[Rfam]
Rfam assigns this 100-nucleotide RNA sequence from Acidihalobacter prosperus to the family "Guanidine-I riboswitch aptamer". The pairing is the family consensus, mapped onto this sequence. Lineage of the source: Bacteria > Pseudomonadota > Gammaproteobacteria > Ectothiorhodospiraceae > Acidihalobacter. A search with the family's covariance model found it, with a score of 92 bits.
RNA sequence: UCUAAAGGCGACUAGGGUUCCGCCCGGACGACCGGGGUCUGGUCCGAGAGUCGCCGGCCCCGGCGGCGGGGCUACACGGCGGGACAAAAGCCCGGGAGAG
Numbered sequence: 001u002c003u004a005a006a007g008g009c010g011a012c013u014a015g016g017g018u019u020c021c022g023c024c025c026g027g028a029c030g031a032c033c034g035g036g037g038u039c040u041g042g043u044c045c046g047a048g049a050g051u052c053g054c055c056g057g058c059c060c061c062g063g064c065g066g067c068g069g070g071g072c073u074a075c076a077c078g079g080c081g082g083g084a085c086a087a088a089a090g091c092c093c094g095g096g097a098g099a100g
Base pairs, nucleotide, nucleotide: 007055008054009053010052011051012050015045016044020042021041022039023036024035025034026033027032056073057072058071059070060069061068062067075095077098081093082092083091